[Rfam]
RNA sequence: GGUUAAGAGCGUCAGUGCAAAGCCCCGGCUGGCUGACCGGCAACCCUCGCGCCGCGGCGGGGUGCCCCCGGGGGAGACCGGGCGGCACGGUGGGCGUGUCGCAAGCGCGGCCC
Dot-bracket structure: ((((....(.((((((....((......)).)))))))(((..(((.(........)..))).))).........))))..((((((((.....))))))))...........
RNA: SAM (S-adenosyl methionine) riboswitch aptamer
Organism: Streptosporangium carneum